[Rfam]
Nucleotides: 028
Stems, first nucleotide, its partner, number of pairs: 001028004008023001010020004
Number, partner (000 for none) and nucleotide at each position: 001028c002027a003026a004025c005000c006000u007000c008023u009000a010020a011019a012018a013017a014000a015000u016000a017013u018012u019011u020010u021000g022000a023008a024000u025004g026003u027002u028001g
About this RNA
Rfam assigns this 28-nucleotide sequence from Anisodus acutangulus to the family "L19-Flavobacteria ribosomal protein leader". Lineage of the source: Eukaryota > Viridiplantae > Solanales > Solanoideae > Anisodus. The family's RNA type in Rfam is cis-regulatory leader.